This 81-nucleotide sequence from Callorhinchus milii belongs to the Rfam family "mir-92 microRNA precursor family".
A search with the family's covariance model found it, with a score of 80 bits.
The family's consensus secondary structure was predicted with PFOLD.
The organism belongs to Callorhinchus, within Eukaryota.
Rfam's curators write: This family represents the microRNA precursor mir-92.
Rfam links the family to the GO terms RISC complex and miRNA-mediated post-transcriptional gene silencing.

[Rfam]
RNA sequence: AUUUCUGCAUGGGUGGGGAUUUGUUGCAUUACUGGAUAUUACCGUGACAGUAUUGCACUUGUCCCGGCCUGUGGAGGAAAA
Numbered sequence: 001a002u003u004u005c006u007g008c009a010u011g012g013g014u015g016g017g018g019a020u021u022u023g024u025u026g027c028a029u030u031a032c033u034g035g036a037u038a039u040u041a042c043c044g045u046g047a048c049a050g051u052a053u054u055g056c057a058c059u060u061g062u063c064c065c066g067g068c069c070u071g072u073g074g075a076g077g078a079a080a081a
Base pairs, nucleotide, nucleotide: 004077005076006075009072010071011070012069013068014067016065017064018063019062020061023058024057026056027055028054030052031051032050033049034048